[Rfam]
Nucleotides: 197
Stems, first nucleotide, its partner, number of pairs: 015057005059109009069099001071095003128190012141159006
Number, partner (000 for none) and nucleotide at each position: 001000a002000c003000a004000c005000g006000u007000g008000a009000a010000g011000g012000g013000a014000g015057g016056u017055g018054g019053u020000u021000c022000g023000g024000a025000a026000g027000u028000g029000a030000u031000g032000u033000c034000a035000u036000u037000u038000c039000g040000g041000a042000c043000u044000c045000g046000u047000g048000a049000g050000g051000u052000g053019a054018c055017u056016g057015c058000g059109g060108g061107c062106u063105g064104a065103c066102g067101g068000c069099c070000c071095g072094u073093c074000g075000u076000c077000g078000c079000a080000c081000u082000u083000a084000g085000u086000g087000c088000a089000g090000g091000c092000c093073g094072a095071c096000a097000c098000a099069g100000a101067c102066c103065g104064u105063c106062g107061g108060c109059c110000g111000a112000a113000a114000u115000c116000c117000c118000a119000g120000c121000a122000g123000u124000c125000a126000c127000u128190g129189a130188c131187c132186c133185g134184c135183g136182g137181g138180c139179u140000c141159g142158c143157c144156g145155g146154u147000a148000a149000g150000u151000c152000c153000g154146g155145c156144c157143g158142g159141c160000u161000c162000c163000u164000c165000u166000u167000c168000g169000g170000a171000g172000g173000g174000a175000c176000c177000a178000g179139a180138g181137c182136c183135c184134g185133c186132g187131g188130g189129u190128u191000u192000c193000u194000g195000c196000g197000u